[Rfam]
RNA sequence: UGACGAAAAGGCAAACUUGUAGAAAUGCAGGGACGCAAAGCCACGGGUCUUCUUCAAGAUAGCCGGGUUGUCGAAU
Numbered sequence: 001u002g003a004c005g006a007a008a009a010g011g012c013a014a015a016c017u018u019g020u021a022g023a024a025a026u027g028c029a030g031g032g033a034c035g036c037a038a039a040g041c042c043a044c045g046g047g048u049c050u051u052c053u054u055c056a057a058g059a060u061a062g063c064c065g066g067g068u069u070g071u072c073g074a075a076u
Stems, first nucleotide, its partner, number of pairs: 011036002016031006034062001039069004044065003047060003
RNA: c-di-GMP-I-GGC riboswitch aptamer